A member of the RNA family "SAM (S-adenosyl methionine) riboswitch aptamer" from Cellulomonas cellasea, 111 nucleotides long. SAM-IV is a mRNA element that regulates gene expression via direct sensing of S-adenosylmethionine (SAM or AdoMet). SAM-IV riboswitches share conserved nucleotide positions with the previously described SAM-I riboswitches sequence analysis and molecular recognition experiments suggest that SAM-I and SAM-IV riboswitches share similar ligand binding sites, but have different scaffolds.
RNA sequence: GGUCAUGAGCUCCAGCGCGUAGCCCCGGCUGGCUGGACGGCAACCCUCCGCACGGCGGGGUGCCCCGGGUGAGGACCUGGUCGUGAGCGGCGACGCCCACGGCAACGAUGC
Numbered sequence: 001g002g003u004c005a006u007g008a009g010c011u012c013c014a015g016c017g018c019g020u021a022g023c024c025c026c027g028g029c030u031g032g033c034u035g036g037a038c039g040g041c042a043a044c045c046c047u048c049c050g051c052a053c054g055g056c057g058g059g060g061u062g063c064c065c066c067g068g069g070u071g072a073g074g075a076c077c078u079g080g081u082c083g084u085g086a087g088c089g090g091c092g093a094c095g096c097c098c099a100c101g102g103c104a105a106c107g108a109u110g111c
Base pairs, nucleotide, nucleotide: 001077002076003075004074009038011037012036013035014034015033016032021030022029039064040063041062044060045059046058048055049054080103081102082101083100084099085098087096088095089094